[Rfam]
RNA sequence: UCGUAUCUCUAGUUUGUUCGUGGAUCUGUCGCCAUCACAACCGUUCAUUUCACGACCAUCCAAUGGCGUUAGAUUCACGCACAAACUCGCGAUCUGUCU
Numbered sequence: 001u002c003g004u005a006u007c008u009c010u011a012g013u014u015u016g017u018u019c020g021u022g023g024a025u026c027u028g029u030c031g032c033c034a035u036c037a038c039a040a041c042c043g044u045u046c047a048u049u050u051c052a053c054g055a056c057c058a059u060c061c062a063a064u065g066g067c068g069u070u071a072g073a074u075u076c077a078c079g080c081a082c083a084a085a086c087u088c089g090c091g092a093u094c095u096g097u098c099u
Base pairs, nucleotide, nucleotide: 002096003095005093006092007091011087012086013085014084015083016082017081019079020078021077022076023075024074025073026072028070030068032066033065043056045054
Overview
Shown here is a 99-nucleotide RNA sequence from Populus deltoides, a member of the family "MIR403 microRNA precursor family". Rfam 15.1 lists 215 matches to the family in 108 species.